About this RNA: Rfam assigns this 93-nucleotide RNA sequence from Salvia splendens to the family "Small nucleolar RNA snoR26". The literature on the family includes a 2001 paper in RNA by Brown et al., "Multiple snoRNA gene clusters from Arabidopsis". It is annotated as a C/D-box small nucleolar RNA. The match comes from Rfam's covariance-model search (74 bits). Gene Ontology terms of the family: RNA processing and nucleolus.
RNA sequence: UAAGCAUCUGAGAUGAGAAAACAUUAAUGUCAUCCUUGCACUUUGAUUCAAAAAUGAAGAAAAUCAAUGGGGAAAGUAUACUCUGAGAUGCUU
Numbered sequence: 001u002a003a004g005c006a007u008c009u010g011a012g013a014u015g016a017g018a019a020a021a022c023a024u025u026a027a028u029g030u031c032a033u034c035c036u037u038g039c040a041c042u043u044u045g046a047u048u049c050a051a052a053a054a055u056g057a058a059g060a061a062a063a064u065c066a067a068u069g070g071g072g073a074a075a076g077u078a079u080a081c082u083c084u085g086a087g088a089u090g091c092u093u
Stems, first nucleotide, its partner, number of pairs: 002093007